This 73-nucleotide RNA from Dinothrombium tinctorium belongs to the Rfam family "mir-3931 microRNA precursor family".
Lineage of the source: Eukaryota > Ecdysozoa > Chelicerata > Anystina > Dinothrombium.
A search with the family's covariance model found it, with a score of 78 bits.
The family has 2 seed sequences and 17 matches in Rfam 15.1.
[Rfam]
RNA sequence: CUGUAAUGAUUUGUACCGAUUCAUUGUUAGGUUAGACUAAAUUACUACUUUGAGUCGGUACGAAUCAUCUCAU
Numbered sequence: 001c002u003g004u005a006a007u008g009a010u011u012u013g014u015a016c017c018g019a020u021u022c023a024u025u026g027u028u029a030g031g032u033u034a035g036a037c038u039a040a041a042u043u044a045c046u047a048c049u050u051u052g053a054g055u056c057g058g059u060a061c062g063a064a065u066c067a068u069c070u071c072a073u
Base pairs, nucleotide, nucleotide: 006068007067008066009065010064011063012062013061014060015059016058017057018056019055020054021053022052023051026048030046031045032044034042